Shown here is a 57-nucleotide RNA sequence from Oreochromis niloticus, a member of the family "mir-7552 microRNA precursor family". The base pairs follow the family's consensus structure, which was predicted with RNAalifold. The organism belongs to Oreochromis, within Eukaryota.
RNA sequence: UUACAAUUAAAGGAUAUUUCUUGGGAAUGACUCAGAAGUGUCUUUUAAUUGUUCGGU
Numbered sequence: 001u002u003a004c005a006a007u008u009a010a011a012g013g014a015u016a017u018u019u020c021u022u023g024g025g026a027a028u029g030a031c032u033c034a035g036a037a038g039u040g041u042c043u044u045u046u047a048a049u050u051g052u053u054c055g056g057u
Stems, first nucleotide, its partner, number of pairs: 003052008012043010024032002